[Rfam]
This 74-nucleotide RNA from Sphingomonas sp. Leaf42 belongs to the Rfam family "Makes More Granules Regulator RNA (mmgR)". Rfam classes the family as a small RNA. Pairs were carried over by alignment from the consensus structure. SuhB later renamed mmgR (makes more granules regulator) was a putative non-coding RNA found multiple times in the Agrobacterium tumefaciens genome and related alpha-proteobacteria. Other non-coding RNAs uncovered in the same analysis include: speF, ybhL, metA, and serC.Several studies inSinorhizobium meliloti showed that suhB element is indeed a non-coding RNA:firstly it was detected on Northern blot and called Sm8RNA, secondly in an RNAseq study referred to as SmelC689.The mutant phenotype's (strain lacking the small RNA) cytoplasm contains higher content of polyhydroxybutyrate (PBH)storage granules than wild type strain. The family is grouped with related families in Rfam's "suhB sRNA clan".
RNA sequence: AGGAGGUGCCUUUCAGGCAUCCUCUCCUAAAACUUUACGGCCGGUCGUUUCGAUCGGCCUUUUUUUUCGUCUUG
Numbered sequence: 001a002g003g004a005g006g007u008g009c010c011u012u013u014c015a016g017g018c019a020u021c022c023u024c025u026c027c028u029a030a031a032a033c034u035u036u037a038c039g040g041c042c043g044g045u046c047g048u049u050u051c052g053a054u055c056g057g058c059c060u061u062u063u064u065u066u067u068c069g070u071c072u073u074g
Stems, first nucleotide, its partner, number of pairs: 008018004039059008